RNA: MIR480 microRNA precursor family
RNA sequence: UAAUCUAUCUAGAGUAAAUCCUCAUCUAGUUAUGGUAAACUCACAAUUGACUACUAAGAAUCAUUCGUUAUCGCAAAUUGAACUCCAUUAGAUAUAGUAAGUGUGAUGUUGUUUUUUCUUCAAAUA
Numbered sequence: 001u002a003a004u005c006u007a008u009c010u011a012g013a014g015u016a017a018a019u020c021c022u023c024a025u026c027u028a029g030u031u032a033u034g035g036u037a038a039a040c041u042c043a044c045a046a047u048u049g050a051c052u053a054c055u056a057a058g059a060a061u062c063a064u065u066c067g068u069u070a071u072c073g074c075a076a077a078u079u080g081a082a083c084u085c086c087a088u089u090a091g092a093u094a095u096a097g098u099a100a101g102u103g104u105g106a107u108g109u110u111g112u113u114u115u116u117u118c119u120u121c122a123a124a125u126a
Base pairs, nucleotide, nucleotide: 006126007125008122012118014116018112019111023108024107025106027103028102030100031099032098033097